[Rfam]
RNA sequence: GGCGAUAAACGUUUUUCGGAAUAAUCGUUUCGGACCCGGGGGCGGUACCCGGCGCCUCCACCAAUUCGAGCCAGCGCUUUAUAAGCUUAAGCGCUGGCUGUUCAGGGGGCGAAAUAGGAUCGACGAGCGUGGUAAAGGACUGACUUUCGCCCGGCAUUGUACCACCGUAUCGGGCUACUUUUACAAAUGCUAACGAUAACAACGAAGCAUUUGCGGUUGCCGCUUAA
Numbered sequence: 001g002g003c004g005a006u007a008a009a010c011g012u013u014u015u016u017c018g019g020a021a022u023a024a025u026c027g028u029u030u031c032g033g034a035c036c037c038g039g040g041g042g043c044g045g046u047a048c049c050c051g052g053c054g055c056c057u058c059c060a061c062c063a064a065u066u067c068g069a070g071c072c073a074g075c076g077c078u079u080u081a082u083a084a085g086c087u088u089a090a091g092c093g094c095u096g097g098c099u100g101u102u103c104a105g106g107g108g109g110c111g112a113a114a115u116a117g118g119a120u121c122g123a124c125g126a127g128c129g130u131g132g133u134a135a136a137g138g139a140c141u142g143a144c145u146u147u148c149g150c151c152c153g154g155c156a157u158u159g160u161a162c163c164a165c166c167g168u169a170u171c172g173g174g175c176u177a178c179u180u181u182u183a184c185a186a187a188u189g190c191u192a193a194c195g196a197u198a199a200c201a202a203c204g205a206a207g208c209a210u211u212u213g214c215g216g217u218u219g220c221c222g223c224u225u226a227a
Base pairs, nucleotide, nucleotide: 001151002150003149004148005147016139017138026129027128028127030126031125032124036052037051038050039049040048053111054110055109056108057107058106059105152167153166154165

Overview
Rfam assigns this 227-nucleotide RNA sequence from Magnetovibrio blakemorei to the family "permuted transfer-messenger RNA". It is annotated as a non-coding RNA gene. From the family's description: Bacterial tmRNA, also known as 10Sa RNA or SsrA, is named for its dual tRNA and mRNA-like properties. The family's consensus secondary structure is taken from published work.